[Rfam]
RNA sequence: UGGGCAGUAUCAGCGAUGAACUGCACCUAUGAAAUGAAUCUAUUUUAACUUAUCUGCCUUGAUCCAUUAUGUGACAGGGACAGAGGA
Numbered sequence: 001u002g003g004g005c006a007g008u009a010u011c012a013g014c015g016a017u018g019a020a021c022u023g024c025a026c027c028u029a030u031g032a033a034a035u036g037a038a039u040c041u042a043u044u045u046u047a048a049c050u051u052a053u054c055u056g057c058c059u060u061g062a063u064c065c066a067u068u069a070u071g072u073g074a075c076a077g078g079g080a081c082a083g084a085g086g087a
Stems, first nucleotide, its partner, number of pairs: 002027002004024005010019002054083003057079005063074002
The record is an 87-nucleotide sequence from Jeotgalibacillus alimentarius, which matches "pan motif" in Rfam.
Lineage of the source: Bacteria > Bacillota > Caryophanales > Caryophanaceae > Jeotgalibacillus.
The family's RNA type in Rfam is cis-regulatory element.
The family's consensus secondary structure is taken from published work.